[Rfam]
RNA sequence: AUGAACCCCGUGGAAGAGAGCGCCGAAGAUGCGCCCCCGAAGGAGCAACCGCCCCGGAAACUCUCAGGGAACCGGACCGCGGGGGGAUG
Dot-bracket structure: .....((((((((......((((.......)))).(((((..(((...((.....))...))))).))).......)))))))).....